[Rfam]
RNA: L31-Firmicutes ribosomal protein leader
RNA sequence: CUCUGGUUUAGGAAAUAAAUCAGGGCAUAAAGGAG
Numbered sequence: 001c002u003c004u005g006g007u008u009u010a011g012g013a014a015a016u017a018a019a020u021c022a023g024g025g026c027a028u029a030a031a032g033g034a035g
Stems, first nucleotide, its partner, number of pairs: 001025010
Dot-bracket structure: ((((((((((.....))))))))))..........